Shown here is a 113-nucleotide RNA sequence from Mammaliicoccus stepanovicii, a member of the family "PyrR binding site". Rfam links the family to the GO terms pyrimidine nucleobase biosynthetic process and pyrimidine nucleobase transport. A search with the family's covariance model found it, with a score of 62 bits. From the family's description: This family represents the PyrR binding site and terminator structure. This RNA structure is found upstream of a variety of genes involved in pyrimidine biosynthesis and transport. The alignment also includes a portion of the antiterminator structure. The family's consensus secondary structure is taken from published work. Rfam classes the family as a cis-regulatory element. The organism belongs to Mammaliicoccus, within Bacteria.

RNA sequence: AGCGUCUUUAAAGGACAGUCCAGAGAGGCUGGAAAGACAUAAUAUGUACGUGUGGACCAUUCUAAUGGUACCAGUAUAUACUCAUGUCUUUCUAAAGACGUGAGUAUUUUUUU
Number, nucleotide and partner (000 for none) at each position: 001a000002g000003c000004g038005u037006c036007u035008u034009u033010a000011a000012a000013g000014g000015a000016c031017a030018g029019u028020c027021c000022a000023g000024a000025g000026a000027g020028g019029c018030u017031g016032g000033a009034a008035a007036g006037a005038c004039a000040u000041a000042a000043u000044a000045u000046g000047u000048a000049c074050g000051u000052g000053u000054g071055g000056a069057c068058c067059a066060u065061u000062c000063u000064a000065a060066u059067g058068g057069u056070a000071c054072c000073a000074g049075u000076a000077u000078a107079u106080a105081c104082u103083c102084a101085u100086g099087u098088c097089u096090u095091u000092c000093u000094a000095a090096a089097g088098a087099c086100g085101u084102g083103a082104g081105u080106a079107u078108u000109u000110u000111u000112u000113u000